The family of this 71-nucleotide RNA from Phocoena sinus is "Small nucleolar RNA SNORD34". Gene Ontology terms of the family: RNA processing and nucleolus. Rfam 15.1 lists 1,319 matches to the family in 583 species. The base pairs follow the family's consensus structure, which was predicted with PFOLD.

Nucleotides: 071
Base pairs, nucleotide, nucleotide: 002070004068005067006066007065
Number, partner (000 for none) and nucleotide at each position: 001000u002070g003000g004068c005067g006066u007065c008000c009000g010000u011000g012000a013000u014000g015000u016000u017000c018000u019000g020000c021000a022000g023000u024000u025000a026000c027000c028000u029000a030000c031000a032000u033000u034000g035000u036000u037000u038000g039000a040000u041000c042000c043000u044000c045000g046000u047000g048000a049000a050000a051000a052000c053000a054000g055000c056000a057000c058000u059000g060000g061000c062000u063000g064000a065007g066006a067005c068004g069000c070002c071000u